The family of this 100-nucleotide sequence from Rachicladosporium sp. CCFEE 5018 is "Small nucleolar RNA Z13/snr52". The family's RNA type in Rfam is C/D-box small nucleolar RNA. Lineage of the source: Eukaryota > Pezizomycotina > Dothideomycetes > Cladosporiales > Rachicladosporium. Rfam links the family to the GO terms nucleolus and RNA processing.

RNA sequence: AUUGCCUAUAUGAUGAAGAAAUUACUUGGAUAAAUUGUCUUUCCGAGAGCGCAAAAAUUAUGCGGAUUGUUUCCUUGUUGCCUUCCUUCUGAUUUGGUCU
Numbered sequence: 001a002u003u004g005c006c007u008a009u010a011u012g013a014u015g016a017a018g019a020a021a022u023u024a025c026u027u028g029g030a031u032a033a034a035u036u037g038u039c040u041u042u043c044c045g046a047g048a049g050c051g052c053a054a055a056a057a058u059u060a061u062g063c064g065g066a067u068u069g070u071u072u073c074c075u076u077g078u079u080g081c082c083u084u085c086c087u088u089c090u091g092a093u094u095u096g097g098u099c100u
Stems, first nucleotide, its partner, number of pairs: 004098002027077001028074003